[Rfam]
RNA sequence: CCUAGGGCUUACGCCCUAGGCUAAUAAAGUACGGGCCUUCAGCCCU
Numbered sequence: 001c002c003u004a005g006g007g008c009u010u011a012c013g014c015c016c017u018a019g020g021c022u023a024a025u026a027a028a029g030u031a032c033g034g035g036c037c038u039u040c041a042g043c044c045c046u
Base pairs, nucleotide, nucleotide: 001020002019003018004017005016006015007014008013033045034044035043036042
Acido-Lenti-1 RNA: a 46-nucleotide RNA. The base pairs follow the family's consensus structure, which is taken from published work. By type it is a small RNA.